A member of the RNA family "FMN riboswitch aptamer (RFN element)" from Clostridiaceae bacterium JG1575, 117 nucleotides long.
RNA sequence: UAGUAUCUUCAGGGCGGGGUGUGAGUCCCCACCGGCGGUAUAGCCCGCGAACCGAUUCCCGGUUGAUCCGUUGAAACUACGGAGCCGACAGUAUAGUCUGGAUGAAAGAAGAUGAUU
Numbered sequence: 001u002a003g004u005a006u007c008u009u010c011a012g013g014g015c016g017g018g019g020u021g022u023g024a025g026u027c028c029c030c031a032c033c034g035g036c037g038g039u040a041u042a043g044c045c046c047g048c049g050a051a052c053c054g055a056u057u058c059c060c061g062g063u064u065g066a067u068c069c070g071u072u073g074a075a076a077c078u079a080c081g082g083a084g085c086c087g088a089c090a091g092u093a094u095a096g097u098c099u100g101g102a103u104g105a106a107a108g109a110a111g112a113u114g115a116u117u
Base pairs, nucleotide, nucleotide: 004114005113006112007111008110009109010108017029018028019027031097032096033087034086035048036047037046038045043085044084051063052062053061067083068082069081070080071079089100090099091098
Its family is annotated with FMN binding in the Gene Ontology. The family's consensus secondary structure is taken from published work.